[Rfam]
RNA sequence: ACCUUUCACUAGGGGAGCUGUGAAAUCGGCUGAGAAGAACUGUUUCGUUCUGACCCUUUGAACCCGAACUAGAUAAUACUAGCGUGGGGAAGUGUGGUCGAAGCUUG
Numbered sequence: 001a002c003c004u005u006u007c008a009c010u011a012g013g014g015g016a017g018c019u020g021u022g023a024a025a026u027c028g029g030c031u032g033a034g035a036a037g038a039a040c041u042g043u044u045u046c047g048u049u050c051u052g053a054c055c056c057u058u059u060g061a062a063c064c065c066g067a068a069c070u071a072g073a074u075a076a077u078a079c080u081a082g083c084g085u086g087g088g089g090a091a092g093u094g095u096g097g098u099c100g101a102a103g104c105u106u107g
Stems, first nucleotide, its partner, number of pairs: 007094004011057004016051001017030004037050004063088004069082004
RNA: TPP riboswitch aptamer (THI element)